[Rfam]
Description
Rfam assigns this 57-nucleotide sequence from Inhella gelatinilytica to the family "COG3860 RNA". The family's RNA type in Rfam is cis-regulatory element. The family's consensus secondary structure is taken from published work.

RNA sequence: GGGUCGGCAGUUCACCCAGGCGUUGCCGUGUGGCUCGUCCACAAGCUAAACCUGCCC
Numbered sequence: 001g002g003g004u005c006g007g008c009a010g011u012u013c014a015c016c017c018a019g020g021c022g023u024u025g026c027c028g029u030g031u032g033g034c035u036c037g038u039c040c041a042c043a044a045g046c047u048a049a050a051c052c053u054g055c056c057c
Stems, first nucleotide, its partner, number of pairs: 001017004029043004